[Rfam]
RNA sequence: GAUCCUCUCAGGUUCUGGCACGGCCCUCGGAAUAGCCAGAAUCCUUUAGCCGACCGGAAUGCGGUCGGCUUUUUUUU
Numbered sequence: 001g002a003u004c005c006u007c008u009c010a011g012g013u014u015c016u017g018g019c020a021c022g023g024c025c026c027u028c029g030g031a032a033u034a035g036c037c038a039g040a041a042u043c044c045u046u047u048a049g050c051c052g053a054c055c056g057g058a059a060u061g062c063g064g065u066c067g068g069c070u071u072u073u074u075u076u077u
Base pairs, nucleotide, nucleotide: 011043012042013041014040015039016038017037018036019035024030025029048070049069050068051067052066053065054064055063056062

A member of the RNA family "Burkholderia sRNA 54" from Paraburkholderia phenazinium, 77 nucleotides long. Rfam describes the family as follows. Identified by RNA-seq, RACE and Northern blot. Strongly expressed in biofilm. The family's consensus secondary structure was predicted with RNAfold. By type it is a small RNA. NCBI's taxonomy places the organism under Bacteria, Pseudomonadota, Betaproteobacteria, Burkholderiales, Paraburkholderia.